[Rfam]
RNA sequence: GAAAAAAUGGGUGAGAACCCCAUUCGCCGAAAGCCUAAGGUUUCCUGUGCAAUGUCAGUCAGAACAGGGUGAGUCGGCCCCUAAGGCGAGGCCGAAAGGCGUAGUCGACGGGAAACAGGUAAAAAUUCCUGUACCACAUAUCAACACGACGCGGGGACGGAGAAAGGUAUCCGAGAGAACUGAUGGAAGUGUUCUUUGAAGGGUGUAGGCUCAGGUGUAGUGAAAAGCGCACCUGAUAAAAGCUGAGGCCUAAUAACGAGAAUCUUCUUCGGAAGAUUCAAGUCGGAAAUCCUCUGCUUCCAAGAAAAUCCGCUAAGGUUCAUUGGUAUGUGACCGUACCGCAAACCGACACAGGUAGGCAGGUAGAGAAUACUAAGGCGCA
Numbered sequence: 001g002a003a004a005a006a007a008u009g010g011g012u013g014a015g016a017a018c019c020c021c022a023u024u025c026g027c028c029g030a031a032a033g034c035c036u037a038a039g040g041u042u043u044c045c046u047g048u049g050c051a052a053u054g055u056c057a058g059u060c061a062g063a064a065c066a067g068g069g070u071g072a073g074u075c076g077g078c079c080c081c082u083a084a085g086g087c088g089a090g091g092c093c094g095a096a097a098g099g100c101g102u103a104g105u106c107g108a109c110g111g112g113a114a115a116c117a118g119g120u121a122a123a124a125a126u127u128c129c130u131g132u133a134c135c136a137c138a139u140a141u142c143a144a145c146a147c148g149a150c151g152c153g154g155g156g157a158c159g160g161a162g163a164a165a166g167g168u169a170u171c172c173g174a175g176a177g178a179a180c181u182g183a184u185g186g187a188a189g190u191g192u193u194c195u196u197u198g199a200a201g202g203g204u205g206u207a208g209g210c211u212c213a214g215g216u217g218u219a220g221u222g223a224a225a226a227g228c229g230c231a232c233c234u235g236a237u238a239a240a241a242g243c244u245g246a247g248g249c250c251u252a253a254u255a256a257c258g259a260g261a262a263u264c265u266u267c268u269u270c271g272g273a274a275g276a277u278u279c280a281a282g283u284c285g286g287a288a289a290u291c292c293u294c295u296g297c298u299u300c301c302a303a304g305a306a307a308a309u310c311c312g313c314u315a316a317g318g319u320u321c322a323u324u325g326g327u328a329u330g331u332g333a334c335c336g337u338a339c340c341g342c343a344a345a346c347c348g349a350c351a352c353a354g355g356u357a358g359g360c361a362g363g364u365a366g367a368g369a370a371u372a373c374u375a376a377g378g379c380g381c382a
Base pairs, nucleotide, nucleotide: 006024007023008022009021010020011019025380026379027378028377033360034359035358036357039340040339044068045067046066047065048064053061054060075336076335077334080111081110085106086105087104089102091100092099093098115132116131117130118129119128135332136331137330138329139328140327141326142325143324144323147317151313152312153311154310155309159300160299161298162297165293166292167291170287171286172285173284174283175196176195177194178193179192180191197256201251202250203249204248208244209243210242212235213234214233215232216231217230218229220228221227263276264275265274266273267272346355347354362374363373364372365371
Overview:
The family of this 382-nucleotide part of an RNA from Desulfurispirillum indicum is "Bacterial large subunit ribosomal RNA". Lineage of the source: Bacteria > Pseudomonadati > Chrysiogenota > Chrysiogenales > Desulfurispirillum indicum. The sequence is in the family's curated seed alignment.